[Rfam]
RNA sequence: AAAAGUCACUAGGGGUGCUUCCGAUAAGCUGAGAAAGAUGCAGGACAUCUUAACCCUUACAACCUGAACUGGGUAAUUCCAGCGGAGGGAAGAGGCAUGAUAAAAAA
Numbered sequence: 001a002a003a004a005g006u007c008a009c010u011a012g013g014g015g016u017g018c019u020u021c022c023g024a025u026a027a028g029c030u031g032a033g034a035a036a037g038a039u040g041c042a043g044g045a046c047a048u049c050u051u052a053a054c055c056c057u058u059a060c061a062a063c064c065u066g067a068a069c070u071g072g073g074u075a076a077u078u079c080c081a082g083c084g085g086a087g088g089g090a091a092g093a094g095g096c097a098u099g100a101u102a103a104a105a106a107a
Base pairs, nucleotide, nucleotide: 006095007094009092010091011057012056013055014054017029018028019027020026036050037049038048039047040046063088064087065086069082070081071080072079